RNA sequence: GAGUUUGAGGGGCGCUGCAACAGGGAUUACUCUGCUAGGCUCAAACCACUUUCAGAUAUUAACGGCGCUCAUCUUAU
Numbered sequence: 001g002a003g004u005u006u007g008a009g010g011g012g013c014g015c016u017g018c019a020a021c022a023g024g025g026a027u028u029a030c031u032c033u034g035c036u037a038g039g040c041u042c043a044a045a046c047c048a049c050u051u052u053c054a055g056a057u058a059u060u061a062a063c064g065g066c067g068c069u070c071a072u073c074u075u076a077u
Base pairs, nucleotide, nucleotide: 003046004045005044006043007042008041021034022033023032024031025030

SAH (S-adenosyl-L-homocysteine) riboswitch aptamer: a 77-nucleotide RNA from Pelistega indica. The base pairs follow the family's consensus structure, which is taken from published work. The organism belongs to Pelistega, within Bacteria. A search with the family's covariance model found it, with a score of 54 bits.